[Rfam]
RNA sequence: AAUUGAAAUGUAUGUAAGUCGCUCUGGAUAAGAGCGUCUGCUAAAAUGACUAAAA
Numbered sequence: 001a002a003u004u005g006a007a008a009u010g011u012a013u014g015u016a017a018g019u020c021g022c023u024c025u026g027g028a029u030a031a032g033a034g035c036g037u038c039u040g041c042u043a044a045a046a047u048g049a050c051u052a053a054a055a
Stems, first nucleotide, its partner, number of pairs: 013043001014041003020036006